[Rfam]
Nucleotides: 048
Stems, first nucleotide, its partner, number of pairs: 001048001003046017
Number, partner (000 for none) and nucleotide at each position: 001048g002000c003046g004045a005044g006043a007042a008041c009040u010039a011038u012037u013036u014035g015034a016033a017032u018031c019030a020000a021000g022000u023000a024000g025000u026000g027000a028000a029000g030019u031018g032017a033016u034015u035014c036013a037012a038011a039010u040009g041008g042007u043006u044005c045004u046003c047000a048001c
Rfam assigns this 48-nucleotide RNA sequence from Myriophyllum spicatum to the family "Plastid-ccsA-ndhD-2 3UTR RNA". The organism belongs to Myriophyllum, within Eukaryota. From the family's description: Plastid ccsA-ndhD-2 is a non-coding RNA (ncRNA) recognised in plastids. On this family, see Richter et al., Plant Commun 2023: "Retrograde signaling in plants: A critical review focusing on the GUN pathway and beyond".